[Rfam]
RNA sequence: GCGAUGAGCUAAUUGAAUAAGCCGGCGGGCGCUCCUUUAUUGGAAAUGCACGAUGUGGCGUGCAGCCUGCCGCCUCAAUACGCAAGACCCUCUGUUUCAGGGGGUCUUU
Numbered sequence: 001g002c003g004a005u006g007a008g009c010u011a012a013u014u015g016a017a018u019a020a021g022c023c024g025g026c027g028g029g030c031g032c033u034c035c036u037u038u039a040u041u042g043g044a045a046a047u048g049c050a051c052g053a054u055g056u057g058g059c060g061u062g063c064a065g066c067c068u069g070c071c072g073c074c075u076c077a078a079u080a081c082g083c084a085a086g087a088c089c090c091u092c093u094g095u096u097u098c099a100g101g102g103g104g105u106c107u108u109u
Base pairs, nucleotide, nucleotide: 013078014077015076016075023072024071025070026069027068028067029066030065033042047064048063050061051060052059087109091104092103093102095100